[Rfam]
RNA sequence: UGUAAUACCAAUCAAAGAAGUAGUUCUCCAUCCGAAGACUAUUUUAUCGUAUUUUGAAUUU
Numbered sequence: 001u002g003u004a005a006u007a008c009c010a011a012u013c014a015a016a017g018a019a020g021u022a023g024u025u026c027u028c029c030a031u032c033c034g035a036a037g038a039c040u041a042u043u044u045u046a047u048c049g050u051a052u053u054u055u056g057a058a059u060u061u
Base pairs, nucleotide, nucleotide: 017045018044019043020042021041022040023039024038025037027035

A member of the RNA family "Plastid-psbN 5UTR RNA" from Vigna radiata, 61 nucleotides long. A reference for the family is Richter et al. (2023), "Retrograde signaling in plants: A critical review focusing on the GUN pathway and beyond", Plant Commun. The family's consensus secondary structure was predicted with LocARNA. The family has 63 seed sequences and 2,345 matches in Rfam 15.1. Taxonomically the source falls in Vigna radiata (Eukaryota, Tracheophyta, rosids, Fabaceae). From the family's description: Plastid psbN is a non-coding RNA (ncRNA) recognised in plastids. It was reported as a conserved 11 stem-loop in the prime untranslated region (5UTR) of psbN genes. It has been reported that the motif is retained in a subset of mature transcripts in barley, which can suggests a possible role in transcript alternative 5 prime processing.